[Rfam]
RNA sequence: UCUGGCAGGAAUGACACUCUUGCCCUGCUGAGAAUGCUGUUCAGUCCUGGGAACAUUUCGAAGUUCUUGCUCUGAGUCAGA
Number, nucleotide and partner (000 for none) at each position: 001u081002c080003u079004g078005g077006c076007a000008g000009g000010a000011a000012u000013g000014a000015c000016a000017c000018u000019c000020u000021u000022g000023c000024c000025c000026u000027g000028c000029u000030g000031a000032g000033a000034a000035u000036g000037c000038u000039g000040u000041u000042c000043a000044g000045u000046c000047c000048u000049g000050g000051g000052a000053a000054c000055a000056u000057u000058u000059c000060g000061a000062a000063g000064u000065u000066c000067u000068u000069g000070c000071u000072c000073u000074g000075a000076g006077u005078c004079a003080g002081a001
RNA: Small nucleolar RNA SNORD103/SNORD85
Organism: Tinamus guttatus